[Rfam]
RNA sequence: UUUAUUUUUUAUUAACAACACACACAUAUCAACAAGGCUCAAUCGGGGUGCCAAACGGUCGAUUGGCUGAUAUGUGGAGGCUCAAC
Numbered sequence: 001u002u003u004a005u006u007u008u009u010u011a012u013u014a015a016c017a018a019c020a021c022a023c024a025c026a027u028a029u030c031a032a033c034a035a036g037g038c039u040c041a042a043u044c045g046g047g048g049u050g051c052c053a054a055a056c057g058g059u060c061g062a063u064u065g066g067c068u069g070a071u072a073u074g075u076g077g078a079g080g081c082u083c084a085a086c
Stems, first nucleotide, its partner, number of pairs: 023076008036068003040065006050059003
Rfam assigns this 86-nucleotide sequence from Parahaemophilus pittmaniae to the family "t44 RNA". Taxonomically the source falls in Parahaemophilus (Bacteria, Pseudomonadota, Gammaproteobacteria, Pasteurellaceae). This family consists of a number of bacterial RNA genes of between 135 and 170 bases in length. The t44 gene has been identified in several species of enteric bacteria but homologs have also been identified in Pseudomonas and Coxiella species. The t44 gene is found between the map and rpsB genes in all species in the full alignment apart from Shigella flexneri. The function of this RNA is unknown. A search with the family's covariance model found it, with a score of 62 bits. The base pairs follow the family's consensus structure, which was predicted with LocARNA. It is annotated as a small RNA.